[Rfam]
RNA sequence: GCUCCAGUGGCCUAAUGGAUAUGGCUUUGGACUUCUAAUCCAAAGGUUGCGGGUUCGAGUCCCGUCUGGAGUA
Number, nucleotide and partner (000 for none) at each position: 001g072002c071003u070004c069005c068006a067007g066008u000009g000010g025011c024012c023013u000014a000015a000016u000017g000018g000019a000020u000021a000022u000023g012024g011025c010026u000027u043028u042029g041030g040031a039032c000033u000034u000035c000036u000037a000038a000039u031040c030041c029042a028043a027044a000045g000046g000047u000048u000049g065050c064051g063052g062053g061054u000055u000056c000057g000058a000059g000060u000061c053062c052063c051064g050065u049066c007067u006068g005069g004070a003071g002072u001073a000

Notes: The record is a 73-nucleotide RNA from Trypanosoma brucei, which matches "tRNA" in Rfam. NCBI's taxonomy places the organism under Eukaryota, Discoba, Kinetoplastea, Metakinetoplastina, Trypanozoon. Gene Ontology term of the family: triplet codon-amino acid adaptor activity.